This 142-nucleotide RNA from Limoniibacter endophyticus belongs to the Rfam family "Alphaproteobacterial sRNA ar7".
The organism belongs to Limoniibacter, within Bacteria.

[Rfam]
RNA sequence: UGUCGGCAAUUUAAUGCCGCGUCCGGAUCACAGGCAUGUCCCCCGCCUCGUUCGGACUUUAUGCGGCAGCCUAUCCCCCUCUCCGGGCUGCCGUUUGUUUCAAGAACCGUCGUGGCAUCCCCCUCCGCCACGGCGGUUUUUG
Numbered sequence: 001u002g003u004c005g006g007c008a009a010u011u012u013a014a015u016g017c018c019g020c021g022u023c024c025g026g027a028u029c030a031c032a033g034g035c036a037u038g039u040c041c042c043c044c045g046c047c048u049c050g051u052u053c054g055g056a057c058u059u060u061a062u063g064c065g066g067c068a069g070c071c072u073a074u075c076c077c078c079c080u081c082u083c084c085g086g087g088c089u090g091c092c093g094u095u096u097g098u099u100u101c102a103a104g105a106a107c108c109g110u111c112g113u114g115g116c117a118u119c120c121c122c123c124u125c126c127g128c129c130a131c132g133g134c135g136g137u138u139u140u141u142g
Stems, first nucleotide, its partner, number of pairs: 022056007033047003063094009105138001107136010
Description
The literature on the family includes a 2012 paper in RNA Biol by del Val et al., "A survey of sRNA families in alpha-proteobacteria".